RNA sequence: AGAGUCCACUACGAUGAAGGUAUAGCGAACCACAUCGCCCCCGAGCCGUGCGCGGGCAUUCGCGAGGAUGUCAGCGAAGCGUCGGUAGGGGAAUGUGUAGGCCAGCCAGGGAGCCACGAAAUGUUUUAUAUCCCGGAUGCUGACGCGCUCCAGUACGUGGAAAGCAACAGGGGGCGGUGCGACAGCGCGAGUGCCGACCGAUCCGGCGUGGUCGUAGAACC
Number, nucleotide and partner (000 for none) at each position: 001a000002g000003a000004g000005u000006c000007c000008a000009c000010u000011a000012c037013g036014a035015u034016g033017a000018a000019g031020g030021u029022a000023u190024a000025g188026c187027g000028a000029a021030c020031c019032a000033c016034a015035u014036c013037g012038c000039c091040c090041c089042c088043g000044a000045g086046c085047c084048g083049u081050g080051c076052g075053c074054g000055g072056g071057c070058a069059u068060u067061c066062g000063c000064g000065a000066g061067g060068a059069u058070g057071u056072c055073a000074g053075c052076g051077a000078a000079g000080c050081g049082u000083c048084g047085g046086u045087a000088g042089g041090g040091g039092a000093a000094u000095g000096u000097g000098u000099a000100g000101g000102c000103c000104a000105g000106c000107c000108a000109g000110g215111g213112a000113g212114c211115c210116a209117c208118g207119a000120a000121a000122u000123g000124u000125u000126u000127u000128a000129u000130a000131u000132c000133c206134c205135g204136g203137a202138u201139g165140c164141u163142g000143a000144c159145g158146c157147g156148c000149u000150c000151c000152a000153g000154u000155a000156c147157g146158u145159g144160g000161a000162a000163a141164g140165c139166a000167a000168c000169a000170g000171g199172g000173g198174g000175c196176g195177g194178u193179g192180c191181g000182a000183c000184a000185g000186c000187g026188c025189g000190a023191g180192u179193g178194c177195c176196g175197a000198c173199c171200g000201a138202u137203c136204c135205g134206g133207c118208g117209u116210g115211g114212u113213c111214g000215u110216a000217g000218a000219a000220c000221c000